[Rfam]
RNA sequence: CGCGUGGUGUCUGGCGAAAGGCUGGAAGGGCGACGCGGCCUAACUUAAGGU
Numbered sequence: 001c002g003c004g005u006g007g008u009g010u011c012u013g014g015c016g017a018a019a020g021g022c023u024g025g026a027a028g029g030g031c032g033a034c035g036c037g038g039c040c041u042a043a044c045u046u047a048a049g050g051u
Stems, first nucleotide, its partner, number of pairs: 001037005007031002010026006
Dot-bracket structure: (((((.((.((((((.....))))))...)).)))))..............
A member of the RNA family "L31-Gammaproteobacteria ribosomal protein leader" from Citrobacter braakii, 51 nucleotides long. The family's RNA type in Rfam is cis-regulatory leader. Its Rfam clan is "Ribosomal Protein L31 Leader clan". The source organism's lineage runs through Bacteria, Pseudomonadati, Pseudomonadota, Citrobacter and Citrobacter freundii complex.